[Rfam]
RNA sequence: UUCCCAAGCAACCCGUCCAAACAAAGAACUAUCUACUUCGGUUUCUAUACCAACCCAAACCAACAUCACCAUGUCUCCCUGCACCUGCAACUGCUGCUCCGGCGAGUGCAACUCCUGCGCUUGCAACAGCUGCUCUGUACGCCACC
Numbered sequence: 001u002u003c004c005c006a007a008g009c010a011a012c013c014c015g016u017c018c019a020a021a022c023a024a025a026g027a028a029c030u031a032u033c034u035a036c037u038u039c040g041g042u043u044u045c046u047a048u049a050c051c052a053a054c055c056c057a058a059a060c061c062a063a064c065a066u067c068a069c070c071a072u073g074u075c076u077c078c079c080u081g082c083a084c085c086u087g088c089a090a091c092u093g094c095u096g097c098u099c100c101g102g103c104g105a106g107u108g109c110a111a112c113u114c115c116u117g118c119g120c121u122u123g124c125a126a127c128a129g130c131u132g133c134u135c136u137g138u139a140c141g142c143c144a145c146c
Stems, first nucleotide, its partner, number of pairs: 080104003087097003108133003117124002

Shown here is a 146-nucleotide RNA sequence from Aspergillus calidoustus, a member of the family "A. fumigatus sRNA Afu_254".
It is annotated as a small RNA.
It scores 84 bits against the family's covariance model.
Taxonomically the source falls in Aspergillus subgen. Nidulantes (Eukaryota, Fungi, Dikarya, saccharomyceta).